[Rfam]
RNA sequence: UUGGUGAGGCAAGGUGGCCUAGCAGAGUGUUUUCUAUAAGGUUUGCACCCUGUCAGACCAUACUUGUUUUAACU
Numbered sequence: 001u002u003g004g005u006g007a008g009g010c011a012a013g014g015u016g017g018c019c020u021a022g023c024a025g026a027g028u029g030u031u032u033u034c035u036a037u038a039a040g041g042u043u044u045g046c047a048c049c050c051u052g053u054c055a056g057a058c059c060a061u062a063c064u065u066g067u068u069u070u071a072a073c074u
Base pairs, nucleotide, nucleotide: 005071006070007069008068009067010066011065012064013063014061015060016059017058019056020055022053023052024051025050027048028047029046030045

Rfam assigns this 74-nucleotide sequence from Manduca sexta to the family "mir-2755 microRNA precursor family". Rfam links the family to the GO terms RISC complex and miRNA-mediated post-transcriptional gene silencing. Rfam's curators put it in the seed alignment. Taxonomically the source falls in Manduca (Eukaryota, Bilateria, Pancrustacea, Allotriocarida).